[Rfam]
RNA: MIR394 microRNA precursor family
Organism: Arachis hypogaea
RNA sequence: CUUACAGAGUUUAUUGGCAUUCUGUCCACCUCCUCCGAUCUUCAUUCUUUUUGACAUCAAAAUUCUUGGGAGGUGGACAUACUGCCAACAGAGUUCUGUUAG
Number, nucleotide and partner (000 for none) at each position: 001c000002u000003u000004a000005c000006a000007g000008a000009g000010u000011u092012u000013a000014u088015u087016g086017g085018c084019a083020u000021u000022c000023u079024g078025u077026c076027c075028a074029c073030c072031u071032c070033c069034u000035c000036c000037g000038a000039u000040c000041u000042u000043c000044a000045u000046u000047c000048u000049u000050u000051u000052u000053g000054a000055c000056a000057u000058c000059a000060a000061a000062a000063u000064u000065c000066u000067u000068g000069g033070g032071a031072g030073g029074u028075g027076g026077a025078c024079a023080u000081a000082c000083u019084g018085c017086c016087a015088a014089c000090a000091g000092a011093g000094u000095u000096c000097u000098g000099u000100u000101a000102g000